A member of the RNA family "U7 small nuclear RNA" from Piliocolobus tephrosceles, 62 nucleotides long. The family has 49 seed sequences and 10,439 matches in Rfam 15.1. Pairs were carried over by alignment from the consensus structure, which was predicted with PFOLD. The source organism's lineage runs through Eukaryota, Teleostomi, Tetrapoda, Boreoeutheria and Piliocolobus. The match comes from Rfam's covariance-model search (66 bits).

RNA sequence: GGGUGUUACAGCUCUUUUAGAAUUUGUCUAGCAGGCUUUGCGGGAAACACCGGAAAGCCCUC
Numbered sequence: 001g002g003g004u005g006u007u008a009c010a011g012c013u014c015u016u017u018u019a020g021a022a023u024u025u026g027u028c029u030a031g032c033a034g035g036c037u038u039u040g041c042g043g044g045a046a047a048c049a050c051c052g053g054a055a056a057g058c059c060c061u062c
Stems, first nucleotide, its partner, number of pairs: 034059006041052003